[Rfam]
RNA sequence: UUGCUGUGGUGAACAUUCAACGCUGUCGGUGAGUUUGAGAAUAAAGUAUAAACCAUCGACCGUUGACUGUACCCUACAGUUUA
Numbered sequence: 001u002u003g004c005u006g007u008g009g010u011g012a013a014c015a016u017u018c019a020a021c022g023c024u025g026u027c028g029g030u031g032a033g034u035u036u037g038a039g040a041a042u043a044a045a046g047u048a049u050a051a052a053c054c055a056u057c058g059a060c061c062g063u064u065g066a067c068u069g070u071a072c073c074c075u076a077c078a079g080u081u082u083a
Base pairs, nucleotide, nucleotide: 001083003081004079005078006077007076008075014069015068017066018065019064020063021062022061025060026059027058028057029056030055031054033053034052035051036050